[Rfam]
RNA sequence: GUAAAUCCUAAGCGAGCCUGAGAUAGUGAGAGUCAGGUGAUUGAGAGAUAAGUGUGGCGCUUUCUGUAGUAUUUUCAAAAACAAUGAAGUAAUAAAUUAGGGUGGAACCGCGUUUCUGACG
Numbered sequence: 001g002u003a004a005a006u007c008c009u010a011a012g013c014g015a016g017c018c019u020g021a022g023a024u025a026g027u028g029a030g031a032g033u034c035a036g037g038u039g040a041u042u043g044a045g046a047g048a049u050a051a052g053u054g055u056g057g058c059g060c061u062u063u064c065u066g067u068a069g070u071a072u073u074u075u076c077a078a079a080a081a082c083a084a085u086g087a088a089g090u091a092a093u094a095a096a097u098u099a100g101g102g103u104g105g106a107a108c109c110g111c112g113u114u115u116c117u118g119a120c121g
Base pairs, nucleotide, nucleotide: 001108002107006105007104008102009101016070017069021065022064023063025061026060027059028058031055034052038048073089074088075087076086077085
RNA: Streptococcus sRNA SpR19
Organism: Streptococcus peroris